[Rfam]
The family of this 35-nucleotide sequence from Nomascus leucogenys is "Iron response element I". Rfam 15.1 lists 6,829 matches to the family in 599 species. By type it is a cis-regulatory element. The match comes from Rfam's covariance-model search (44 bits).

RNA sequence: UUGUGUCUUGCUUCAACAGUGUUUGGACGGAAGAG
Numbered sequence: 001u002u003g004u005g006u007c008u009u010g011c012u013u014c015a016a017c018a019g020u021g022u023u024u025g026g027a028c029g030g031a032a033g034a035g
Base pairs, nucleotide, nucleotide: 001035002034004032006031007030008029010028012027013026014025015024016023017021